[Rfam]
RNA sequence: UCGCGUGCUCUGGGGUCGGUGAAAAUCCGAGCCGGCGGUGACUGUGCAAACUGUGCAGAAGUCCGCGACCCGUUCACAGCCAGUGAGCGGUUGACCAGGUGAAAAUCCUGGACCGACGGUCAUAGUCCGGAUGGGAAGGUGCACGCAG
Numbered sequence: 001u002c003g004c005g006u007g008c009u010c011u012g013g014g015g016u017c018g019g020u021g022a023a024a025a026u027c028c029g030a031g032c033c034g035g036c037g038g039u040g041a042c043u044g045u046g047c048a049a050a051c052u053g054u055g056c057a058g059a060a061g062u063c064c065g066c067g068a069c070c071c072g073u074u075c076a077c078a079g080c081c082a083g084u085g086a087g088c089g090g091u092u093g094a095c096c097a098g099g100u101g102a103a104a105a106u107c108c109u110g111g112a113c114c115g116a117c118g119g120u121c122a123u124a125g126u127c128c129g130g131a132u133g134g135g136a137a138g139g140u141g142c143a144c145g146c147a148g
Base pairs, nucleotide, nucleotide: 003146004145005144006143007142008141010139017029018028019027031126032125033115034114035066036065037064038063061113062112070090071089095111096110097109098108099107117129118128119127
The record is a 148-nucleotide RNA sequence from Nocardioides daedukensis, which matches "FMN riboswitch aptamer (RFN element)" in Rfam. Gene Ontology term of the family: FMN binding. A reference for the family is Serganov et al. (2009), "Coenzyme recognition and gene regulation by a flavin mononucleotide riboswitch", Nature. It scores 94 bits against the family's covariance model.